Shown here is a 70-nucleotide RNA sequence from Thauera aromatica, a member of the family "int-alpA RNA". The base pairs follow the family's consensus structure, which is taken from published work. The family's RNA type in Rfam is small RNA. Acidobacteria (1 example), Planctomycetes (1 example), Proteobacteria. The organism belongs to Thauera aromatica, within Bacteria.
[Rfam]
RNA sequence: GCCGCCCCUACCCCGACGGGGGGAAGAGCCGGACACCAUCGCCGGCCUGGGGCGGCACCCUUUCCGAUGG
Numbered sequence: 001g002c003c004g005c006c007c008c009u010a011c012c013c014c015g016a017c018g019g020g021g022g023g024a025a026g027a028g029c030c031g032g033a034c035a036c037c038a039u040c041g042c043c044g045g046c047c048u049g050g051g052g053c054g055g056c057a058c059c060c061u062u063u064c065c066g067a068u069g070g
Stems, first nucleotide, its partner, number of pairs: 001056008011022004028046005036070006